[Rfam]
RNA sequence: ACACUUGACCCGCGUCCGGCAGGAGCGGGGGACCCACCAGGUACGACUGCCUGUCCCGGUCUCCGCGACAGGCUAUGGGGUGCAGCCGUGCAGCACACGGCCGGGCAGCUCCAGCCCGAACCCGACAGCUGACCUCGCAGGCGCCGGAGAGGAACCGA
Numbered sequence: 001a002c003a004c005u006u007g008a009c010c011c012g013c014g015u016c017c018g019g020c021a022g023g024a025g026c027g028g029g030g031g032a033c034c035c036a037c038c039a040g041g042u043a044c045g046a047c048u049g050c051c052u053g054u055c056c057c058g059g060u061c062u063c064c065g066c067g068a069c070a071g072g073c074u075a076u077g078g079g080g081u082g083c084a085g086c087c088g089u090g091c092a093g094c095a096c097a098c099g100g101c102c103g104g105g106c107a108g109c110u111c112c113a114g115c116c117c118g119a120a121c122c123c124g125a126c127a128g129c130u131g132a133c134c135u136c137g138c139a140g141g142c143g144c145c146g147g148a149g150a151g152g153a154a155c156c157g158a
Stems, first nucleotide, its partner, number of pairs: 002143001004141002010023002025138006035077002078123003086100004103117004
Dot-bracket structure: .(.((....((..........)).((((((....((.......................................))(((.....((((.......))))..((((.......))))...))).........)))))).)).)...............
The family of this 158-nucleotide sequence from Streptomyces dangxiongensis is "c-di-AMP riboswitch aptamer (ydaO/yuaA leader)". NCBI's taxonomy places the organism under Bacteria, Bacillati, Actinomycetota, Streptomycetaceae, Streptomyces. It scores 57 bits against the family's covariance model. The literature on the family includes a 2004 paper in Proc Natl Acad Sci U S A by Barrick et al., "New RNA motifs suggest an expanded scope for riboswitches in bacterial genetic control". The pairing is the family consensus, mapped onto this sequence.